[Rfam]
RNA sequence: CCAGUUGACCGGGCGGCCGCUGCAUCUCGCGAUGUGGAGGAAAGUCCGGGCUCCAUGAGAACACGGUGCCGGGUAACGCCCGGCGGGGGCGACCCCAGGGAAAGUGCCACAGAAAGCAAACCGCCCGGCAGGUCCGGGUAAGGGUGAAAGGGUGCGGCAAGAGCGCACCGGGCAGCCGGCAACGGAGGCCGCAUGGUAAACCCCACCGGGAGCAAGACCGAAUAGGGACGAUGGAGGCUCGCCUCGGCCGCGUUUUCACGGCUUGUCGUCCGGGUUGGUUGCAGGAGGACCGCAGCGAUGCGGUUCCCAGAUGAAUGGUCGCCACGUCGAAGGCCCAGCCUUCGGCCCUACAGAACCCGGCUUACAGGUCAACUGGUGUC
Dot-bracket structure: ((((((((((((((((((.(((((((....)))))))....[[[.[[[[[((((....[....((((((((((.....)))))(((((....)))).)((...(((((............((((((((.....))))))..)).......((((((.......))))))((((..(((....)))..))).)..)))..)))))))))))))...((((......((((((..................(.(((....]))).).)))))).....))))......((((((((....))))))))..........)))))))................................]]]]]]]].).))))))))))....
Numbered sequence: 001c002c003a004g005u006u007g008a009c010c011g012g013g014c015g016g017c018c019g020c021u022g023c024a025u026c027u028c029g030c031g032a033u034g035u036g037g038a039g040g041a042a043a044g045u046c047c048g049g050g051c052u053c054c055a056u057g058a059g060a061a062c063a064c065g066g067u068g069c070c071g072g073g074u075a076a077c078g079c080c081c082g083g084c085g086g087g088g089g090c091g092a093c094c095c096c097a098g099g100g101a102a103a104g105u106g107c108c109a110c111a112g113a114a115a116g117c118a119a120a121c122c123g124c125c126c127g128g129c130a131g132g133u134c135c136g137g138g139u140a141a142g143g144g145u146g147a148a149a150g151g152g153u154g155c156g157g158c159a160a161g162a163g164c165g166c167a168c169c170g171g172g173c174a175g176c177c178g179g180c181a182a183c184g185g186a187g188g189c190c191g192c193a194u195g196g197u198a199a200a201c202c203c204c205a206c207c208g209g210g211a212g213c214a215a216g217a218c219c220g221a222a223u224a225g226g227g228a229c230g231a232u233g234g235a236g237g238c239u240c241g242c243c244u245c246g247g248c249c250g251c252g253u254u255u256u257c258a259c260g261g262c263u264u265g266u267c268g269u270c271c272g273g274g275u276u277g278g279u280u281g282c283a284g285g286a287g288g289a290c291c292g293c294a295g296c297g298a299u300g301c302g303g304u305u306c307c308c309a310g311a312u313g314a315a316u317g318g319u320c321g322c323c324a325c326g327u328c329g330a331a332g333g334c335c336c337a338g339c340c341u342u343c344g345g346c347c348c349u350a351c352a353g354a355a356c357c358c359g360g361c362u363u364a365c366a367g368g369u370c371a372a373c374u375g376g377u378g379u380c
Stems, first nucleotide, its partner, number of pairs: 001376010011365001012323007020037007042363003046360005051212004059259001064208005069083005084098001085096004099203002104201002106197003121143002123139006151169006170192001171190003176185003216280004226271006250264001252262003287306008